RNA: RAGATH-34 RNA
RNA sequence: UUUAGUAGUCUAAAACACGAAACUGACCUGAUGAGUUAGGCUACAUAGUGCGCACUAUGUAGUUGACUUAAACGUGUAUAAAUAAAAGUUGAAACCUAGUUC
Dot-bracket structure: (((((....))))).((((....((((.......))))(((((((((((....)))))))))))........))))..........................